[Rfam]
RNA sequence: GCGCCCGUCGUUGGGGAGUAGCCAAUUUUCUGCCUGCCAGAAAAUGUACGUGUCAACAUACUCGUUGCAAAACGUGGCACGUACGGGUUGAAGAAGAACGUCUUCAAUCAGGCGAGACCAUAGACGCAUCGCUGCUGUACGCGGCGCCUCAUCUUC
Numbered sequence: 001g002c003g004c005c006c007g008u009c010g011u012u013g014g015g016g017a018g019u020a021g022c023c024a025a026u027u028u029u030c031u032g033c034c035u036g037c038c039a040g041a042a043a044a045u046g047u048a049c050g051u052g053u054c055a056a057c058a059u060a061c062u063c064g065u066u067g068c069a070a071a072a073c074g075u076g077g078c079a080c081g082u083a084c085g086g087g088u089u090g091a092a093g094a095a096g097a098a099c100g101u102c103u104u105c106a107a108u109c110a111g112g113c114g115a116g117a118c119c120a121u122a123g124a125c126g127c128a129u130c131g132c133u134g135c136u137g138u139a140c141g142c143g144g145c146g147c148c149u150c151a152u153c154u155u156c
Stems, first nucleotide, its partner, number of pairs: 026044006046084010063074004085155003089151003
RNA: Manganese Mn2+ riboswitch aptamer (yybP-ykoY)